Record summary:
The family of this 86-nucleotide RNA from Solanum commersonii is "MIR8024 microRNA precursor family".

[Rfam]
RNA sequence: UGGGAGGAUUUGAAGAUUUCAACUUGUAUUUUUGGUGGAUUUGAAGACUUCAACUUGCAAACUUGAAGAAUUUGAUAACUUCAACU
Numbered sequence: 001u002g003g004g005a006g007g008a009u010u011u012g013a014a015g016a017u018u019u020c021a022a023c024u025u026g027u028a029u030u031u032u033u034g035g036u037g038g039a040u041u042u043g044a045a046g047a048c049u050u051c052a053a054c055u056u057g058c059a060a061a062c063u064u065g066a067a068g069a070a071u072u073u074g075a076u077a078a079c080u081u082c083a084a085c086u
Stems, first nucleotide, its partner, number of pairs: 001084001003082004010075005017068005025059004032053004037048001
Lineage of the source: Eukaryota > Euphyllophyta > Pentapetalae > Solanaceae > Solanum. The family has 2 seed sequences and 661 matches in Rfam 15.1. Its family is annotated with miRNA-mediated post-transcriptional gene silencing and RISC complex in the Gene Ontology. The base pairs follow the family's consensus structure, which was predicted with RNAalifold.